Rfam assigns this 199-nucleotide sequence from Tissierella praeacuta to the family "Group II catalytic intron D1-D4-5".
The pairing is the family consensus, mapped onto this sequence.
The family has 139 seed sequences and 720 matches in Rfam 15.1.
Group II introns are found in rRNA, tRNA and mRNA of organelles in fungi, plants and protists, and also in mRNA in bacteria.
The source organism's lineage runs through Bacteria, Bacillota, Tissierellales, Tissierellaceae and Tissierella praeacuta.

[Rfam]
RNA sequence: GAGAACUGAUAAUUUGAUAGGUGGAAUGAGGGAGUAACGCCCCAAAACGCCUGCUUAAUACUCCGAAUGGCAUUUUAUUAAUUAGGUAAUGAAGUGUCAUAAGCUCGGUGAAGUCAGCUGAGAGUACACCCUAACGCAUAAAGGCGAAGAACUGCGAACCAGAGGUGGUCGAGUGUAUGAUAGGCUGGAGUUCUAUAAA
Number, nucleotide and partner (000 for none) at each position: 001g000002a000003g000004a000005a000006c000007u000008g000009a000010u000011a000012a000013u000014u000015u000016g000017a000018u000019a052020g051021g050022u049023g048024g000025a000026a000027u000028g000029a000030g000031g043032g042033a000034g040035u000036a000037a000038c000039g000040c034041c000042c032043c031044a000045a000046a000047a000048c023049g022050c021051c020052u019053g191054c190055u189056u188057a000058a000059u000060a000061c000062u000063c108064c107065g106066a105067a100068u099069g098070g097071c096072a095073u094074u093075u092076u091077a090078u089079u088080a087081a000082u000083u000084a000085g000086g000087u080088a079089a078090u077091g076092a075093a074094g073095u072096g071097u070098c069099a068100u067101a000102a000103g000104c000105u066106c065107g064108g063109u000110g000111a000112a000113g000114u000115c187116a186117g185118c184119u183120g000121a000122g000123a000124g178125u177126a176127c175128a174129c173130c149131c000132u147133a000134a000135c000136g145137c144138a000139u000140a000141a000142a000143g000144g137145c136146g000147a132148a000149g130150a000151a000152c000153u172154g000155c171156g170157a000158a169159c168160c167161a166162g000163a000164g000165g000166u161167g160168g159169u158170c156171g155172a153173g129174u128175g127176u126177a125178u124179g000180a000181u000182a000183g119184g118185c117186u116187g115188g056189a055190g054191u053192u000193c000194u000195a000196u000197a000198a000199a000